Rfam assigns this 73-nucleotide sequence from Micromonospora sp. KC723 to the family "tRNA". Pairs were carried over by alignment from the consensus structure, which is taken from published work. Transfer RNA (tRNA) molecules are approximately 80 nucleotides in length. Lineage of the source: Bacteria > Bacillati > Actinomycetota > Actinomycetes > Micromonospora.
RNA sequence: AGGGGUGUAGCUCAAUUGGUGGAGCAUCGGUCUCCAAAACCGAAGGUUGCAGGUUCGAGUCCUGUCGCCCCUG
Numbered sequence: 001a002g003g004g005g006u007g008u009a010g011c012u013c014a015a016u017u018g019g020u021g022g023a024g025c026a027u028c029g030g031u032c033u034c035c036a037a038a039a040c041c042g043a044a045g046g047u048u049g050c051a052g053g054u055u056c057g058a059g060u061c062c063u064g065u066c067g068c069c070c071c072u073g
Stems, first nucleotide, its partner, number of pairs: 001072007010025004027043005049065005
By type it is a transfer RNA. Its family is annotated with triplet codon-amino acid adaptor activity in the Gene Ontology.